[Rfam]
RNA sequence: CCUGGGGCUUUCGCCCCAGGCUACCUUCCGUUGCCGCUACGCGGCA
Numbered sequence: 001c002c003u004g005g006g007g008c009u010u011u012c013g014c015c016c017c018a019g020g021c022u023a024c025c026u027u028c029c030g031u032u033g034c035c036g037c038u039a040c041g042c043g044g045c046a
Stems, first nucleotide, its partner, number of pairs: 001020008033045005
About this RNA: The family of this 46-nucleotide RNA sequence from Rubripirellula tenax is "Acido-Lenti-1 RNA". It scores 40 bits against the family's covariance model. NCBI's taxonomy places the organism under Bacteria, Planctomycetota, Planctomycetia, Pirellulales, Rubripirellula.